[Rfam]
c-di-AMP riboswitch aptamer (ydaO/yuaA leader): a 127-nucleotide sequence from Microcoleus sp. FACHB-68.
The match comes from Rfam's covariance-model search (60 bits).
NCBI's taxonomy places the organism under Bacteria, Bacillati, Oscillatoriophycideae, Microcoleaceae, Microcoleus.
The pairing is the family consensus, mapped onto this sequence.
RNA sequence: UGACAUUUUAUGCUGGUCAGGCUGGGAUAUGGAGCGGAGGAACCAAUUUUUGGGGCUAAUCUUUCGAGAGAGACACCUUCCAGUCUUAGCCCGUCAGCUAACUCCGUCGGCAAUGGGAGGAGCACCC
Numbered sequence: 001u002g003a004c005a006u007u008u009u010a011u012g013c014u015g016g017u018c019a020g021g022c023u024g025g026g027a028u029a030u031g032g033a034g035c036g037g038a039g040g041a042a043c044c045a046a047u048u049u050u051u052g053g054g055g056c057u058a059a060u061c062u063u064u065c066g067a068g069a070g071a072g073a074c075a076c077c078u079u080c081c082a083g084u085c086u087u088a089g090c091c092c093g094u095c096a097g098c099u100a101a102c103u104c105c106g107u108c109g110g111c112a113a114u115g116g117g118a119g120g121a122g123c124a125c126c127c
Stems, first nucleotide, its partner, number of pairs: 011112004022032002034107006044052002053092003061068002071086004